[Rfam]
RNA sequence: CCUGUGGAGUGUUAAAUCAAACUGUAGUAGCAAGUAAUUAGCGAAACAGGAUACAUAGAAGCAGGAA
Numbered sequence: 001c002c003u004g005u006g007g008a009g010u011g012u013u014a015a016a017u018c019a020a021a022c023u024g025u026a027g028u029a030g031c032a033a034g035u036a037a038u039u040a041g042c043g044a045a046a047c048a049g050g051a052u053a054c055a056u057a058g059a060a061g062c063a064g065g066a067a
Stems, first nucleotide, its partner, number of pairs: 001065005009054005022049003030042002

Description
The family of this 67-nucleotide RNA sequence from Bacillus cereus is "RAGATH-18 RNA". About the family: Actinobacteria, Firmicutes, Fusobacteria, Thermotogae (1 example). Taxonomically the source falls in Bacillus cereus (Bacteria, Bacilli, Bacillaceae, Bacillus).